[Rfam]
Background
Small Cajal body specific RNA 11: a 141-nucleotide RNA sequence from Mesocricetus auratus. It is annotated as a small Cajal body RNA. scaRNAs are a specific class of small nuclear RNAs which localise to the Cajal bodies and guide the modification of RNA polymerase II transcribed spliceosomal RNAs U1, U2, U4, U5 and U12. ACA57 belongs to the H/ACA box class of guide RNAs as it has the predicted hairpin-hinge-hairpin-tail structure, conserved H/ACA-box motifs and is found associated with GAR1. ACA57 is predicted to guide the pseudouridylation of the U5 spliceosomal RNA at position U43.
RNA sequence: AUGUUUUGUCCUGUGCCUUUUACUGCUCCCCUGUGCUGAGUCUCAGCAGGGUAGUCUGGCAGGACACACAGUAAUUUCCCUCUCAGUUUAGGAGGGCUGUCCUAAGUAUAGGGCCAGCUCUUAAAGGCACGAGAGGACAGU
Numbered sequence: 001a002u003g004u005u006u007u008g009u010c011c012u013g014u015g016c017c018u019u020u021u022a023c024u025g026c027u028c029c030c031c032u033g034u035g036c037u038g039a040g041u042c043u044c045a046g047c048a049g050g051g052u053a054g055u056c057u058g059g060c061a062g063g064a065c066a067c068a069c070a071g072u073a074a075u076u077u078c079c080c081u082c083u084c085a086g087u088u089u090a091g092g093a094g095g096g097c098u099g100u101c102c103u104a105a106g107u108a109u110a111g112g113g114c115c116a117g118c119u120c121u122u123a124a125a126g127g128c129a130c131g132a133g134a135g136g137a138c139a140g141u
Stems, first nucleotide, its partner, number of pairs: 002066007010059002025055003029051006079136006086128004092122007099114006